RNA sequence: GAGCAAUGAUGACAAGGUUUGACUACUGAACUUCGAAAUUAUGAAGGUUUCUCUACUUGAUCUGAGCUCA
Numbered sequence: 001g002a003g004c005a006a007u008g009a010u011g012a013c014a015a016g017g018u019u020u021g022a023c024u025a026c027u028g029a030a031c032u033u034c035g036a037a038a039u040u041a042u043g044a045a046g047g048u049u050u051c052u053c054u055a056c057u058u059g060a061u062c063u064g065a066g067c068u069c070a
Stems, first nucleotide, its partner, number of pairs: 001069004014033003018029002
RNA: Small nucleolar RNA U2-30